[Rfam]
RNA sequence: AACUUUUACGAGGUAUCAGCACUUUUCUUUCAUUAGUGGGGAAGGAAGGAUGAAAAAUACAAAGCAGCAGUAGACUUUUAAAGUUUAAAUAGACAGGUCUGAGUGCCUGAACGAGCUCUUCCAUUUUAGUUUAACCCUCCAAAGAAGUACUCUGAUCCAUUUUCACUGCUGAGCAGCAAGGGUAAGUUGAAAGU
Numbered sequence: 001a002a003c004u005u006u007u008a009c010g011a012g013g014u015a016u017c018a019g020c021a022c023u024u025u026u027c028u029u030u031c032a033u034u035a036g037u038g039g040g041g042a043a044g045g046a047a048g049g050a051u052g053a054a055a056a057a058u059a060c061a062a063a064g065c066a067g068c069a070g071u072a073g074a075c076u077u078u079u080a081a082a083g084u085u086u087a088a089a090u091a092g093a094c095a096g097g098u099c100u101g102a103g104u105g106c107c108u109g110a111a112c113g114a115g116c117u118c119u120u121c122c123a124u125u126u127u128a129g130u131u132u133a134a135c136c137c138u139c140c141a142a143a144g145a146a147g148u149a150c151u152c153u154g155a156u157c158c159a160u161u162u163u164c165a166c167u168g169c170u171g172a173g174c175a176g177c178a179a180g181g182g183u184a185a186g187u188u189g190a191a192a193g194u
Stems, first nucleotide, its partner, number of pairs: 003019002007015003029146003033142002036139001038137003041132003049125004056120002072100006101116001104113002158189002161186001164182001166180001167178004
Dot-bracket structure: ..((..(((...)))..)).........(((.((.(.((((((.....((((...((..............((((((.................))))))(..((......))..)..)).))))....)))..))).).)).)))...........((.(..(.(((((....)))).).)...).)).....

The family of this 194-nucleotide RNA from Daphoenositta chrysoptera is "Connexin-43 internal ribosome entry site (IRES)".
The match comes from Rfam's covariance-model search (102 bits).
Rfam describes the family as follows. This family represents the connexin-43 internal ribosome entry site (IRES) which allows cap independent translation during conditions such as heat shock and stress.
Gene Ontology term of the family: ribosome binding.
The organism belongs to Daphoenositta, within Eukaryota.
Pairs were carried over by alignment from the consensus structure, which is taken from published work.
For this family Rfam cites "Connexin43 mRNA contains a functional internal ribosome entry site" (Schiavi et al., FEBS Lett, 1999).